The record is a 65-nucleotide sequence, which matches "Cyano-1 RNA" in Rfam.
[Rfam]
RNA sequence: CCAGUUGUGAGGAGUUGAGAUCCUCCGCAGUGUAAACAAGGAAACACUUGCGCCCGAUCUUCAAA
Numbered sequence: 001c002c003a004g005u006u007g008u009g010a011g012g013a014g015u016u017g018a019g020a021u022c023c024u025c026c027g028c029a030g031u032g033u034a035a036a037c038a039a040g041g042a043a044a045c046a047c048u049u050g051c052g053c054c055c056g057a058u059c060u061u062c063a064a065a
Stems, first nucleotide, its partner, number of pairs: 018060005026052004030047003
Description:
It is annotated as a small RNA. Pairs were carried over by alignment from the consensus structure, which is taken from published work.